[Rfam]
RNA sequence: UUGUUGUUGUCGCUGAAUUUUCUUUUUGAAGAGAAGCGGGGGAACCAAGUUUUUAUGGGGUGAAUCGAAACGCAUGCAAGUGCGCUUCGUAGGGCGAUUUCUCACCGCCCGAAUCCGUCAGCUAACCUCGUAAGCGAAUGUGGGGAGGAUAG
Numbered sequence: 001u002u003g004u005u006g007u008u009g010u011c012g013c014u015g016a017a018u019u020u021u022c023u024u025u026u027u028g029a030a031g032a033g034a035a036g037c038g039g040g041g042g043a044a045c046c047a048a049g050u051u052u053u054u055a056u057g058g059g060g061u062g063a064a065u066c067g068a069a070a071c072g073c074a075u076g077c078a079a080g081u082g083c084g085c086u087u088c089g090u091a092g093g094g095c096g097a098u099u100u101c102u103c104a105c106c107g108c109c110c111g112a113a114u115c116c117g118u119c120a121g122c123u124a125a126c127c128u129c130g131u132a133a134g135c136g137a138a139u140g141u142g143g144g145g146a147g148g149a150u151a152g
Stems, first nucleotide, its partner, number of pairs: 011136004018035007036131006046057002058116003066089004092110004
Notes: Shown here is a 152-nucleotide sequence from Paenibacillus ginsengarvi, a member of the family "c-di-AMP riboswitch aptamer (ydaO/yuaA leader)". It scores 95 bits against the family's covariance model. The family has 106 seed sequences and 7,607 matches in Rfam 15.1.